[Rfam]
RNA sequence: UAAGUUGCUGUCCCAGGGGGGGAGGGCUGCCAUCUGUGGCAAAUACCUCUUCAAUUGGGCAGUAAAGACC
Numbered sequence: 001u002a003a004g005u006u007g008c009u010g011u012c013c014c015a016g017g018g019g020g021g022g023a024g025g026g027c028u029g030c031c032a033u034c035u036g037u038g039g040c041a042a043a044u045a046c047c048u049c050u051u052c053a054a055u056u057g058g059g060c061a062g063u064a065a066a067g068a069c070c
Stems, first nucleotide, its partner, number of pairs: 006065001009062001012059005017050005026040005
This 70-nucleotide sequence belongs to the Rfam family "Hepatitis C virus stem-loop VII". The family's RNA type in Rfam is cis-regulatory element. Rfam's curators put it in the seed alignment. Pairs were carried over by alignment from the consensus structure, which was predicted with RNAfold. A reference for the family is Pirakitikulr et al. (2016), "The Coding Region of the HCV Genome Contains a Network of Regulatory RNA Structures", Mol Cell.